[Rfam]
The family of this 266-nucleotide RNA sequence from Desulforudis audaxviator is "Bacterial large signal recognition particle RNA".
Nucleotides: 266
Stems, first nucleotide, its partner, number of pairs: 001266006009058003012030004017025001019023001035055005064259006073250004079243005085237004092233002096227004101222001104220002106217003115211008123200006129191001132189005138181005148173004156165003
Number, partner (000 for none) and nucleotide at each position: 001266c002265c003264g004263u005262g006261c007000u008000a009058g010057a011056u012030g013029g014028g015027g016000a017025g018000g019023u020000a021000g022000c023019g024000g025017u026000g027015c028014c029013c030012u031000g032000u033000a034000a035055c036054c037053c038052g039051c040000a041000a042000u043000c044000c045000g046000c047000u048000a049000u050000a051039g052038c053037g054036g055035g056011g057010u058009u059000g060000a061000a062000u063000u064259c065258c066257u067256g068255u069254c070000c071000g072000a073250g074249g075248g076247c077000u078000u079243g080242g081241c082240u083239u084000g085237u086236g087235g088234g089000g090000u091000c092233c093232g094000g095000c096227u097226g098225u099224g100000a101222u102000a103000a104220g105219g106217g107216g108215u109000g110000u111000u112000g113000a114000c115211g116210g117209u118208u119207g120206g121205g122204u123200c124199u125198u126197g127196c128195g129191c130000g131000a132189c133188g134187g135186a136185g137000c138181u139180u140179c141178u142177c143000g144000a145000a146000c147000c148173g149172u150171g151170u152000c153000a154000g155000a156165u157164c158163c159000u160000g161000a162000c163158g164157g165156a166000a167000g168000c169000a170151g171150c172149a173148c174000u175000a176000a177142g178141g179140g180139a181138a182000a183000u184000c185136c186135u187134c188133c189132g190000g191129g192000u193000g194000c195128c196127g197126c198125g199124a200123g201000g202000g203000u204122g205121c206120c207119u208118g209117a210116c211115c212000c213000g214000a215108g216107c217106u218000a219105c220104c221000u222101g223000c224099u225098a226097c227096a228000g229000u230000a231000a232093c233092g234088c235087c236086c237085g238000g239083a240082a241081g242080u243079c244000a245000u246000u247076g248075u249074u250073c251000a252000g253000a254069g255068a256067c257066a258065g259064g260000u261006g262005c263004a264003c265002g266001g
It is annotated as a non-coding RNA gene. The family is grouped with related families in Rfam's "SRP clan". The signal recognition particle (SRP) is a universally conserved ribonucleoprotein involved in the co-translational targeting of proteins to membranes.